[Rfam]
A member of the RNA family "L17-Actino-Proteobacteria ribosomal protein leader" from Streptomyces sp. CNT302, 58 nucleotides long. The source organism's lineage runs through Bacteria, Actinomycetota, Kitasatosporales, Streptomycetaceae and Streptomyces.
RNA sequence: GCGAGGGGCGCGAGCCUCUCGCACAGGCUGACACCGGUACCUGACACGGCCGGUGCAG
Numbered sequence: 001g002c003g004a005g006g007g008g009c010g011c012g013a014g015c016c017u018c019u020c021g022c023a024c025a026g027g028c029u030g031a032c033a034c035c036g037g038u039a040c041c042u043g044a045c046a047c048g049g050c051c052g053g054u055g056c057a058g
Base pairs, nucleotide, nucleotide: 001022002021003020004019005018006017007016008015009014028058029057030056032055033054034053035052036051037050038049
The family's consensus secondary structure is taken from published work. It is one of the family's seed sequences.